[Rfam]
RNA sequence: GGGCCGGCUAUAGCCCAGCGGUUCCUUCGGCUGUGCAUGAUAGCUUUCGAUCCCCUGCCUCGGCGGGGGUUCGAGUCCCGCGGGCACCCCUGGCCUACUU
Numbered sequence: 001g002g003g004c005c006g007g008c009u010a011u012a013g014c015c016c017a018g019c020g021g022u023u024c025c026u027u028c029g030g031c032u033g034u035g036c037a038u039g040a041u042a043g044c045u046u047u048c049g050a051u052c053c054c055c056u057g058c059c060u061c062g063g064c065g066g067g068g069g070u071u072c073g074a075g076u077c078c079c080g081c082g083g084g085c086a087c088c089c090c091u092g093g094c095c096u097a098c099u100u
Stems, first nucleotide, its partner, number of pairs: 002095006013085004018081004026075005
Shown here is a 100-nucleotide RNA sequence from Cairina moschata, a member of the family "Vault RNA". A reference for the family is Stadler et al. (2009), "Evolution of Vault RNAs", Mol Biol Evol. NCBI's taxonomy places the organism under Eukaryota, Opisthokonta, Archosauria, Anatinae, Cairina. It scores 61 bits against the family's covariance model. The family has 73 seed sequences and 2,873 matches in Rfam 15.1.